[Rfam]
Overview
This 98-nucleotide sequence from Camelus ferus belongs to the Rfam family "mir-544 microRNA precursor family". Rfam links the family to the GO terms RISC complex and miRNA-mediated post-transcriptional gene silencing. On this family, see Chiang et al., Genes Dev 2010: "Mammalian microRNAs: experimental evaluation of novel and previously annotated genes". Taxonomically the source falls in Camelus (Eukaryota, Teleostomi, Theria, Boreoeutheria).
RNA sequence: ACCACCUGGGGACCUUGUGAAAAGGCAGAUUCUGGUUCAGGAGGUCUGGGACGGGGCCUGCGAGUCUGCAUUUCUCACAAGUUCCCAGGUGACACGAA
Numbered sequence: 001a002c003c004a005c006c007u008g009g010g011g012a013c014c015u016u017g018u019g020a021a022a023a024g025g026c027a028g029a030u031u032c033u034g035g036u037u038c039a040g041g042a043g044g045u046c047u048g049g050g051a052c053g054g055g056g057c058c059u060g061c062g063a064g065u066c067u068g069c070a071u072u073u074c075u076c077a078c079a080a081g082u083u084c085c086c087a088g089g090u091g092a093c094a095c096g097a098a
Stems, first nucleotide, its partner, number of pairs: 003091003009085003014081007021073003025069005031063002
Dot-bracket structure: ..(((...(((..((((((((((.(((((.((.............................)).))))).))).))))))).)))...))).......